Rfam assigns this 331-nucleotide RNA sequence from Callithrix jacchus to the family "7SK RNA". The family's RNA type in Rfam is non-coding RNA gene. The source organism's lineage runs through Eukaryota, Vertebrata, Amniota, Simiiformes and Callithrix. Pairs were carried over by alignment from the consensus structure, which is taken from published work.
RNA sequence: AGAUGUGAGGGCGAUCUGGCUGCGACAUCUGUCACCCCAUUGAUCACCAGCAUUGAUUUGGCUGAUCUGGCUGGCUAGGCGGAUGUCCCCUUCCUCCCUCACCGCUCCAUGUGUGUCCUUCCCGAAGUUGCGCACUCAGUCGAAGAGGACGACCAUCCCCAAUAGAGGAGGACCGGUCUUUGGUCAAGGGUAUACGAGUAGCUGUGCUCCCCUGCUAGAACCUCCAAACAAGCUCUCAAGGUCCAUUUGUAGGAGAACGUAGGGUAGUCAAGCUUUCAGGACUCCAGGCACAUCCAAAUGAGGUGCUUCAUGUGGCAGUCUGCCUUCCUUA
Numbered sequence: 001a002g003a004u005g006u007g008a009g010g011g012c013g014a015u016c017u018g019g020c021u022g023c024g025a026c027a028u029c030u031g032u033c034a035c036c037c038c039a040u041u042g043a044u045c046a047c048c049a050g051c052a053u054u055g056a057u058u059u060g061g062c063u064g065a066u067c068u069g070g071c072u073g074g075c076u077a078g079g080c081g082g083a084u085g086u087c088c089c090c091u092u093c094c095u096c097c098c099u100c101a102c103c104g105c106u107c108c109a110u111g112u113g114u115g116u117c118c119u120u121c122c123c124g125a126a127g128u129u130g131c132g133c134a135c136u137c138a139g140u141c142g143a144a145g146a147g148g149a150c151g152a153c154c155a156u157c158c159c160c161a162a163u164a165g166a167g168g169a170g171g172a173c174c175g176g177u178c179u180u181u182g183g184u185c186a187a188g189g190g191u192a193u194a195c196g197a198g199u200a201g202c203u204g205u206g207c208u209c210c211c212c213u214g215c216u217a218g219a220a221c222c223u224c225c226a227a228a229c230a231a232g233c234u235c236u237c238a239a240g241g242u243c244c245a246u247u248u249g250u251a252g253g254a255g256a257a258c259g260u261a262g263g264g265u266a267g268u269c270a271a272g273c274u275u276u277c278a279g280g281a282c283u284c285c286a287g288g289c290a291c292a293u294c295c296a297a298a299u300g301a302g303g304u305g306c307u308u309c310a311u312g313u314g315g316c317a318g319u320c321u322g323c324c325u326u327c328c329u330u331a
Base pairs, nucleotide, nucleotide: 002107003106005102006101007100008099009098010097011096013093014092018090019089024087025086026085027084028083029082030081031080032079033078035074036073037070038069039068042067043066044065045064047061048060116171117170118168119167120166121165122139124137125136127135128134140162142160147158148157149156201273202272203271207267208266210264211263212262213261214260215259222255223254224253225252228250229249230248231247232246297330298329300326301325302324303323304322305319306318307317309315